[Rfam]
RNA sequence: AGGGGUUCUACAGGGUCGUCCUGAGAUCACAUGAAACGUAUUCAGAAUGUUUGGCUCAUGUGUUCUCAGGUCGCCCCUGCUGAACUUUU
Numbered sequence: 001a002g003g004g005g006u007u008c009u010a011c012a013g014g015g016u017c018g019u020c021c022u023g024a025g026a027u028c029a030c031a032u033g034a035a036a037c038g039u040a041u042u043c044a045g046a047a048u049g050u051u052u053g054g055c056u057c058a059u060g061u062g063u064u065c066u067c068a069g070g071u072c073g074c075c076c077c078u079g080c081u082g083a084a085c086u087u088u089u
Stems, first nucleotide, its partner, number of pairs: 007083002011079004017073002023067004028062005

Annotation
A member of the RNA family "MIR398 microRNA precursor family" from Vigna radiata, 89 nucleotides long. It scores 65 bits against the family's covariance model. The base pairs follow the family's consensus structure, which was predicted with WAR. Rfam links the family to the GO terms RISC complex and miRNA-mediated post-transcriptional gene silencing.